[Rfam]
RNA sequence: ACAGGUUGAUUCUGCCUGACGAGGAUGCUUGUCUCUGGGAUUAAGCCAUGCAAGUCUGGUGAAGCGAAAGUGGAACUGCGAACGGCUCAGUAGAACGGUGAUUAUUUAAUCGUGUAGGAAGGAUAACCGCGGGAAACUGUGGCUAAUAACACGAGUAAGACGCCGACCCAUCAGUUUUAUCGUACGGUAAGGGCGUACGAUGGCUUUAACGGGUACGGGGGAUCAGGGUUUGAUUCCGGAGAGGGAGCCUGAGAAACGGCUACCAGGUCUAAGGACAGCAGCAGGCGCGAAACUUGCCCAAUUGGAGAGAGGCAGUUAUGAGACGUAUAUUUUGUAACCGGGGUAGAAUACCGGUGAUUGACUGGAGGGCAAGUCUGGUGCCAGCAGCCGCGGUAAUUCCAGCUCCAGGAGUGUCAUAGUGCAUUGCUG
Numbered sequence: 001a002c003a004g005g006u007u008g009a010u011u012c013u014g015c016c017u018g019a020c021g022a023g024g025a026u027g028c029u030u031g032u033c034u035c036u037g038g039g040a041u042u043a044a045g046c047c048a049u050g051c052a053a054g055u056c057u058g059g060u061g062a063a064g065c066g067a068a069a070g071u072g073g074a075a076c077u078g079c080g081a082a083c084g085g086c087u088c089a090g091u092a093g094a095a096c097g098g099u100g101a102u103u104a105u106u107u108a109a110u111c112g113u114g115u116a117g118g119a120a121g122g123a124u125a126a127c128c129g130c131g132g133g134a135a136a137c138u139g140u141g142g143c144u145a146a147u148a149a150c151a152c153g154a155g156u157a158a159g160a161c162g163c164c165g166a167c168c169c170a171u172c173a174g175u176u177u178u179a180u181c182g183u184a185c186g187g188u189a190a191g192g193g194c195g196u197a198c199g200a201u202g203g204c205u206u207u208a209a210c211g212g213g214u215a216c217g218g219g220g221g222a223u224c225a226g227g228g229u230u231u232g233a234u235u236c237c238g239g240a241g242a243g244g245g246a247g248c249c250u251g252a253g254a255a256a257c258g259g260c261u262a263c264c265a266g267g268u269c270u271a272a273g274g275a276c277a278g279c280a281g282c283a284g285g286c287g288c289g290a291a292a293c294u295u296g297c298c299c300a301a302u303u304g305g306a307g308a309g310a311g312g313c314a315g316u317u318a319u320g321a322g323a324c325g326u327a328u329a330u331u332u333u334g335u336a337a338c339c340g341g342g343g344u345a346g347a348a349u350a351c352c353g354g355u356g357a358u359u360g361a362c363u364g365g366a367g368g369g370c371a372a373g374u375c376u377g378g379u380g381c382c383a384g385c386a387g388c389c390g391c392g393g394u395a396a397u398u399c400c401a402g403c404u405c406c407a408g409g410a411g412u413g414u415c416a417u418a419g420u421g422c423a424u425u426g427c428u429g
Stems, first nucleotide, its partner, number of pairs: 002018005020419001022417001024415006031324005037317002039288001045286003049283003054079002058077003064071002086241003096165005102159001105158002110154006127142006167213003174204003179201008216238004220231004243264002246261003267276003294314001296313003302309002337355005362408006375402004384391002
The record is a 429-nucleotide part of an RNA from Octosporea bayeri, which matches "Microsporidia small subunit ribosomal RNA" in Rfam. The family's consensus secondary structure is taken from published work. The sequence is in the family's curated seed alignment. On this family, see Yusupov et al., Science 2001: "Crystal structure of the ribosome at 5.5 A resolution".